The family of this 307-nucleotide RNA sequence from Anabarilius grahami is "Nuclear RNase P". A search with the family's covariance model found it, with a score of 213 bits. Ribonuclease P (RNase P) is a ubiquitous endoribonuclease, found in archaea, bacteria and eukarya as well as chloroplasts and mitochondria. Its best characterised activity is the generation of mature 5'-ends of tRNAs by cleaving the 5'-leader elements of precursor-tRNAs. Cellular RNase Ps are ribonucleoproteins. RNA from bacterial RNase Ps retains its catalytic activity in the absence of the protein subunit, i.e. it is a ribozyme. Its family is annotated with tRNA processing, ribonuclease P activity and ribonuclease P complex in the Gene Ontology. The source organism's lineage runs through Eukaryota, Neopterygii, Osteoglossocephalai, Otophysi and Anabarilius.
[Rfam]
RNA sequence: GCGGAAGGAAGCUUACUGUAGAGGUCACAUGCUGAGUGCCCGUCACUCCUCCAUUCACCUCGGGGAAGGUCUGAGACAAGAGCCAAUAGCUGUCCUCACAGGACAUCAUCUGAAAAGAUGAGCGAGCGCACAGAAAACAUGGGUCACGGCGCGGUGUUCUCGCACGAGAUGUUGGUACAUGCGCAGAUUACAGCAGAUCAACUGAUGCGAUCCCCGCUGACUUGGAAACACUCGCGGCUGGCGAAUGAGUUCAAUGUGUGAGCUGGCACAAGCUGCUAGAACCCAAUUCAGACUACUCUCCCUCCGC
Number, nucleotide and partner (000 for none) at each position: 001g307002c306003g305004g304005a000006a000007g301008g300009a299010a000011g000012c262013u261014u260015a259016c258017u000018g000019u000020a000021g061022a060023g059024g058025u000026c000027a000028c000029a000030u000031g000032c000033u000034g048035a047036g046037u045038g044039c000040c000041c000042g000043u000044c038045a037046c036047u035048c034049c000050u000051c000052c000053a000054u000055u000056c000057a000058c024059c023060u022061c021062g000063g000064g000065g000066a000067a000068g000069g000070u000071c291072u290073g289074a288075g287076a000077c000078a000079a000080g000081a239082g238083c237084c236085a000086a000087u000088a000089g000090c000091u105092g104093u103094c102095c101096u000097c000098a000099c000100a000101g095102g094103a093104c092105a091106u121107c120108a119109u118110c117111u116112g000113a000114a000115a000116a111117g110118a109119u108120g107121a106122g235123c234124g233125a232126g231127c000128g229129c000130a000131c000132a000133g000134a000135a000136a000137a000138c000139a000140u000141g000142g000143g221144u220145c219146a000147c000148g000149g000150c000151g000152c000153g000154g000155u000156g000157u000158u000159c000160u000161c000162g000163c000164a000165c000166g000167a000168g000169a000170u000171g000172u000173u000174g000175g000176u000177a000178c000179a000180u000181g000182c000183g000184c000185a000186g000187a000188u000189u000190a000191c000192a000193g000194c000195a000196g000197a000198u000199c000200a000201a000202c000203u000204g000205a000206u000207g000208c000209g000210a000211u000212c000213c000214c000215c000216g000217c000218u000219g145220a144221c143222u000223u000224g000225g000226a000227a000228a000229c128230a000231c126232u125233c124234g123235c122236g084237g083238c082239u081240g000241g000242c000243g000244a000245a000246u000247g000248a000249g000250u000251u000252c000253a000254a000255u000256g000257u000258g016259u015260g014261a013262g012263c279264u278265g277266g276267c275268a274269c000270a000271a000272g000273c000274u268275g267276c266277u265278a264279g263280a000281a000282c000283c000284c000285a000286a000287u075288u074289c073290a072291g071292a000293c000294u000295a000296c000297u000298c000299u009300c008301c007302c000303u000304c004305c003306g002307c001